[Rfam]
The family of this 182-nucleotide RNA sequence from Saimiri boliviensis is "Small Cajal body specific RNA 16".
The family's consensus secondary structure was predicted with RNAfold.
Gene Ontology terms of the family: nucleolus and RNA processing.
RNA sequence: AUGGUCUGUAGAAAGUCUCCUGUGUUGUUGAACUUGUCCAGUUGUGAGUGCAGCCAUGUACCAGGCUGCCCAAGCCUAACAUAAAGUAAAUUCCCAGGAGAAGUCUUUCCUGGAUUUUGAAUUUGCAGUAAUAGGUGUGAGAAUUCUAGCAGCAGUUUGUUGAUGUGAAAUUAGAAAUGAAA
Numbered sequence: 001a002u003g004g005u006c007u008g009u010a011g012a013a014a015g016u017c018u019c020c021u022g023u024g025u026u027g028u029u030g031a032a033c034u035u036g037u038c039c040a041g042u043u044g045u046g047a048g049u050g051c052a053g054c055c056a057u058g059u060a061c062c063a064g065g066c067u068g069c070c071c072a073a074g075c076c077u078a079a080c081a082u083a084a085a086g087u088a089a090a091u092u093c094c095c096a097g098g099a100g101a102a103g104u105c106u107u108u109c110c111u112g113g114a115u116u117u118u119g120a121a122u123u124u125g126c127a128g129u130a131a132u133a134g135g136u137g138u139g140a141g142a143a144u145u146c147u148a149g150c151a152g153c154a155g156u157u158u159g160u161u162g163a164u165g166u167g168a169a170a171u172u173a174g175a176a177a178u179g180a181a182a
Stems, first nucleotide, its partner, number of pairs: 004080002008076001015070001017068001019065004024061002027054004032049003094113002097109004122177003127172003132167002138163001143161001145159001148157003
scaRNAs are a specific class of small nuclear RNAs which localise to the Cajal bodies and guide the modification of RNA polymerase II transcribed spliceosomal RNAs U1, U2, U4, U5 and U12. ACA47 belongs to the H/ACA box class of guide RNAs as it has the predicted hairpin-hinge-hairpin-tail structure, the conserved H/ACA-box motifs and is found associated with GAR1. ACA47 is predicted to guide the pseudouridylation of residue U5 of the U1 spliceosomal snRNA. It is annotated as a small Cajal body RNA. A search with the family's covariance model found it, with a score of 123 bits.